[Rfam]
RNA: mir-7 microRNA precursor family
Organism: Clupea harengus
RNA sequence: AGCACUGAGCGCUGUGGAAGACUAGUGAUUUUGUUGUUCAUCUGUAAGCUGACAACAAGUCUCAGUCUGCCUCAGAGACCAGUGCC
Numbered sequence: 001a002g003c004a005c006u007g008a009g010c011g012c013u014g015u016g017g018a019a020g021a022c023u024a025g026u027g028a029u030u031u032u033g034u035u036g037u038u039c040a041u042c043u044g045u046a047a048g049c050u051g052a053c054a055a056c057a058a059g060u061c062u063c064a065g066u067c068u069g070c071c072u073c074a075g076a077g078a079c080c081a082g083u084g085c086c
Stems, first nucleotide, its partner, number of pairs: 002085006010077001012075003016071002019068005025063001027061005033056006